RNA sequence: GUCAACCACCCAUCACUAAUCGGAGUACCGAUAUAGUGAAGGCUUGAAAGAGCCUAGUUGACCAGCUUAAGUACUUCGAGUACUACGUUUUGAGCUAGAGUUAAAGACCUACCAGGGGAUACGUAGCCAGUUUCCUGCACUAGAACCGAACUAUUAAACAUCUUUACAAGGGUUAAGGAAGUGUAGUUUGGAUAGUUACCGACUCAAAACAUUAGCGUUCGCGCAGCGUGCCGGAGGCUUUGGCUAACAUUAC
Numbered sequence: 001g002u003c004a005a006c007c008a009c010c011c012a013u014c015a016c017u018a019a020u021c022g023g024a025g026u027a028c029c030g031a032u033a034u035a036g037u038g039a040a041g042g043c044u045u046g047a048a049a050g051a052g053c054c055u056a057g058u059u060g061a062c063c064a065g066c067u068u069a070a071g072u073a074c075u076u077c078g079a080g081u082a083c084u085a086c087g088u089u090u091u092g093a094g095c096u097a098g099a100g101u102u103a104a105a106g107a108c109c110u111a112c113c114a115g116g117g118g119a120u121a122c123g124u125a126g127c128c129a130g131u132u133u134c135c136u137g138c139a140c141u142a143g144a145a146c147c148g149a150a151c152u153a154u155u156a157a158a159c160a161u162c163u164u165u166a167c168a169a170g171g172g173u174u175a176a177g178g179a180a181g182u183g184u185a186g187u188u189u190g191g192a193u194a195g196u197u198a199c200c201g202a203c204u205c206a207a208a209a210c211a212u213u214a215g216c217g218u219u220c221g222c223g224c225a226g227c228g229u230g231c232c233g234g235a236g237g238c239u240u241u242g243g244c245u246a247a248c249a250u251u252a253c
Stems, first nucleotide, its partner, number of pairs: 001062006008055001010042002013039006043052003065216003069212001070084005087210006099204004109143002113137008124246005146191009158182002161179006
Rfam assigns this 253-nucleotide sequence from Cylindrospermum stagnale to the family "HNH endonuclease-associated RNA and ORF (HEARO) RNA". A reference for the family is Weinberg et al. (2009), "Exceptional structured noncoding RNAs revealed by bacterial metagenome analysis", Nature. Rfam classes the family as a non-coding RNA gene.